Rfam assigns this 148-nucleotide sequence from Triticum urartu to the family "Small nucleolar RNA snoR2/U65". Rfam links the family to the GO terms nucleolus and RNA processing. A search with the family's covariance model found it, with a score of 64 bits. The family's consensus secondary structure was predicted with WAR. The family is grouped with related families in Rfam's "SNORA65 clan". By type it is an H/ACA-box small nucleolar RNA. NCBI's taxonomy places the organism under Eukaryota, Streptophyta, Spermatophyta, Poaceae, Triticum. The family has 11 seed sequences and 908 matches in Rfam 15.1.
Nucleotides: 148
Stems, first nucleotide, its partner, number of pairs: 002057002005054005013046002016043003021038002024032002080140005093127001097124003101120001103117002
Number, partner (000 for none) and nucleotide at each position: 001000g002057g003056c004000c005054c006053g007052a008051u009050g010000c011000c012000a013046c014045g015000g016043u017042u018041c019000c020000u021038g022037u023000g024032g025031c026000c027000a028000c029000a030000a031025g032024u033000c034000u035000u036000g037022a038021c039000c040000g041018g042017a043016g044000a045014u046013g047000c048000u049000a050009c051008a052007u053006u054005g055000u056003g057002c058000c059000a060000a061000c062000a063000a064000u065000g066000a067000g068000u069000u070000u071000u072000a073000g074000g075000a076000c077000a078000u079000c080140u081139c082138a083137c084136a085000u086000u087000u088000g089000a090000u091000a092000c093127g094000a095000a096000c097124c098123u099122g100000u101120g102000a103117c104116u105000g106000u107000g108000a109000u110000u111000c112000a113000g114000u115000c116104g117103g118000c119000a120101c121000g122099c123098a124097g125000a126000g127093c128000u129000g130000u131000u132000u133000u134000u135000u136084u137083g138082u139081g140080a141000u142000u143000a144000c145000a146000c147000c148000u